[Rfam]
RNA sequence: UGGAUUUGUGGUUACUGGCGAACGUAGAUUAACUACGGGGGAGCCACAAGUAAUAGUGCCGCUCGCCUGGGCAGGGGUA
Numbered sequence: 001u002g003g004a005u006u007u008g009u010g011g012u013u014a015c016u017g018g019c020g021a022a023c024g025u026a027g028a029u030u031a032a033c034u035a036c037g038g039g040g041g042a043g044c045c046a047c048a049a050g051u052a053a054u055a056g057u058g059c060c061g062c063u064c065g066c067c068u069g070g071g072c073a074g075g076g077g078u079a
Stems, first nucleotide, its partner, number of pairs: 004051009015040002017067005024036004057073004

Overview: The record is a 79-nucleotide RNA from Alicyclobacillus sp. SO9, which matches "ZMP/ZTP riboswitch aptamer (pfl RNA motif)" in Rfam. The literature on the family includes a 2015 paper in Nat Struct Mol Biol by Jones and Ferre-D'Amare, "Recognition of the bacterial alarmone ZMP through long-distance association of two RNA subdomains". A search with the family's covariance model found it, with a score of 56 bits. The base pairs follow the family's consensus structure, which is taken from published work.